[Rfam]
Nucleotides: 124
Base pairs, nucleotide, nucleotide: 001124002123003122004121059086060085061084062083063082064081
Number, partner (000 for none) and nucleotide at each position: 001124g002123g003122c004121c005000g006000a007000c008000g009000a010000u011000g012000a013000c014000u015000a016000a017000c018000c019000c020000a021000g022000g023000c024000u025000u026000g027000u028000u029000u030000c031000u032000c033000a034000a035000a036000a037000c038000a039000u040000u041000c042000g043000c044000a045000g046000u047000g048000g049000c050000c051000g052000c053000c054000u055000a056000a057000g058000a059086a060085c061084u062083u063082u064081u065000c066000c067000c068000u069000u070000u071000c072000g073000c074000c075000g076000g077000g078000c079000u080000u081064g082063a083062g084061a085060g086059u087000u088000a089000c090000u091000g092000c093000u094000g095000a096000u097000c098000a099000c100000u101000a102000u103000c104000c105000u106000u107000c108000c109000u110000u111000g112000g113000a114000u115000g116000u117000c118000u119000g120000a121004g122003g123002c124001c